RNA sequence: UGGCGCCCAACGUGGGGCCUGGAUACUGGGGGACAAUGUGAGGGACAUGACGGAGUAAAGAAGGGGUGCGCACCCAAUCAAACAAUAGUUUGGAGAUGUCGCGGUAGCUUGCUGUGACCGAGCCGACAGGUAAGUAGGUCGUGCCAUUUAAAUCAUGGGACAAGCAUUGAGUCAGCAUCAGAAAUAUGUGAUACAAUUAAGAGAAGCAUUACAGGCAAGAGGAGUAAAGGUUACAACUGAAGAUUUAUUUCAUUUUUUUGAUUUUGUGAAAGACAUCUGCCCAU
Numbered sequence: 001u002g003g004c005g006c007c008c009a010a011c012g013u014g015g016g017g018c019c020u021g022g023a024u025a026c027u028g029g030g031g032g033a034c035a036a037u038g039u040g041a042g043g044g045a046c047a048u049g050a051c052g053g054a055g056u057a058a059a060g061a062a063g064g065g066g067u068g069c070g071c072a073c074c075c076a077a078u079c080a081a082a083c084a085a086u087a088g089u090u091u092g093g094a095g096a097u098g099u100c101g102c103g104g105u106a107g108c109u110u111g112c113u114g115u116g117a118c119c120g121a122g123c124c125g126a127c128a129g130g131u132a133a134g135u136a137g138g139u140c141g142u143g144c145c146a147u148u149u150a151a152a153u154c155a156u157g158g159g160a161c162a163a164g165c166a167u168u169g170a171g172u173c174a175g176c177a178u179c180a181g182a183a184a185u186a187u188g189u190g191a192u193a194c195a196a197u198u199a200a201g202a203g204a205a206g207c208a209u210u211a212c213a214g215g216c217a218a219g220a221g222g223a224g225u226a227a228a229g230g231u232u233a234c235a236a237c238u239g240a241a242g243a244u245u246u247a248u249u250u251c252a253u254u255u256u257u258u259u260g261a262u263u264u265u266g267u268g269a270a271a272g273a274c275a276u277c278u279g280c281c282c283a284u
Stems, first nucleotide, its partner, number of pairs: 006031003012026003036048004086133001088131001089129002095124001097121001100116005139163001141161002144159002168211003171207002219259006228246005269284001272281001274279001

Notes:
The family of this 284-nucleotide RNA sequence from Nannospalax galili is "Mason-Pfizer monkey virus packaging signal". The family's consensus secondary structure was predicted with PFOLD. By type it is a cis-regulatory element.